[Rfam]
Annotation:
Shown here is a 73-nucleotide sequence from Nakaseomyces glabratus, a member of the family "tRNA". The family's RNA type in Rfam is transfer RNA.
RNA sequence: GUUAUAUUAGCUCAAUUGGUAGAGCAUUCGUUUUGUAAUCGAAAGGUUUGGGGUUCAAAUCCCUAAUAUAACA
Numbered sequence: 001g002u003u004a005u006a007u008u009a010g011c012u013c014a015a016u017u018g019g020u021a022g023a024g025c026a027u028u029c030g031u032u033u034u035g036u037a038a039u040c041g042a043a044a045g046g047u048u049u050g051g052g053g054u055u056c057a058a059a060u061c062c063c064u065a066a067u068a069u070a071a072c073a
Stems, first nucleotide, its partner, number of pairs: 001072007010025004027043004049065005